Notes: This 87-nucleotide sequence from Allopontixanthobacter sediminis belongs to the Rfam family "tRNA". Rfam classes the family as a transfer RNA. The base pairs follow the family's consensus structure, which is taken from published work.
RNA sequence: GGAGACGUGGCCGAGUGGUCGAAGGCGCACGCCUGGAAAGUGUGUAUAGGGGUAACUCUAUCGUGGGUUCGAAUCCCACCGUCUCCG
Dot-bracket structure: (((((((..(((...........))).(((((.......)))))..................(((((.......)))))))))))).
Numbered sequence: 001g002g003a004g005a006c007g008u009g010g011c012c013g014a015g016u017g018g019u020c021g022a023a024g025g026c027g028c029a030c031g032c033c034u035g036g037a038a039a040g041u042g043u044g045u046a047u048a049g050g051g052g053u054a055a056c057u058c059u060a061u062c063g064u065g066g067g068u069u070c071g072a073a074u075c076c077c078a079c080c081g082u083c084u085c086c087g
Stems, first nucleotide, its partner, number of pairs: 001086007010026003028044005063079005